[Rfam]
RNA sequence: GUGCUUGAUAGGAUUUAACAAAGUCCCUUAUAUCUUAAUCCAUCUGUCACUUUGUCAGCAGUCUUAAUUUGGUUUCUUGCUGAUCAUUAUAAGAUGGGAAACUC
Number, nucleotide and partner (000 for none) at each position: 001g000002u000003g000004c000005u000006u000007g000008a000009u000010a000011g000012g000013a000014u000015u000016u000017a000018a000019c000020a000021a000022a000023g000024u000025c000026c000027c000028u000029u000030a000031u000032a000033u000034c000035u000036u000037a000038a000039u098040c097041c096042a095043u094044c093045u000046g000047u000048c000049a000050c000051u000052u000053u000054g084055u083056c082057a081058g080059c079060a078061g077062u000063c000064u000065u000066a000067a000068u000069u000070u000071g000072g000073u000074u000075u000076c000077u061078u060079g059080c058081u057082g056083a055084u054085c000086a000087u000088u000089a000090u000091a000092a000093g044094a043095u042096g041097g040098g039099a000100a000101a000102c000103u000104c000
This 104-nucleotide RNA from Capsella rubella belongs to the Rfam family "Small nucleolar RNA snoR99".
Lineage of the source: Eukaryota > Streptophyta > rosids > Camelineae > Capsella.
Rfam classes the family as an H/ACA-box small nucleolar RNA.
The family has 9 seed sequences and 733 matches in Rfam 15.1.